[Rfam]
RNA: Bacterial small subunit ribosomal RNA, nucleotides 545 to 899
RNA sequence: GGCGUAAAGGGAGCGUAGGCGGUUAUACAGGUCAUACGUUAAAGACUCCGGCUCAACCGGAGAAGUGCGUAUGAAACCGUAUAACUUGAGGAUAUCAGAGGAAAAGGGAAUUACCAUUGUAGGGGUGAAAUCCGUAGAGAGUGGUAAGAAUGCCGGUGGCGAAGGCGCUUUUCCGGGGUAUACCUGACGCUGAGGCUCGAAAGCCAGGGGAGCAAACCGGAUUAGAUACCCGGGUAGUCCUGGCCGUAAACGAUGUUCACUAGGUGUAGGAUGUCGACAGGCAACCUGUGCUGAAGCAAACGCGAUAAGUGAACCGCCUGGGGAGUACGUCCGCAAGGAUGAAACUCAAAGGAAU
Dot-bracket structure: (((.....(.((((.(.(((.(((((((.((((((((((......((((((.....))))))....))))))))..)))))))))...((((((((...((((((((...((((((((...(((......)))......))))))))...).......((....)).)))))))..))))).)))...))))..))))....((((((...((...((((.........))))...))))))))..........((((((..((((((((.(((......))).))))))))...((....)).....)))))))))).(((......((((....))))....)))........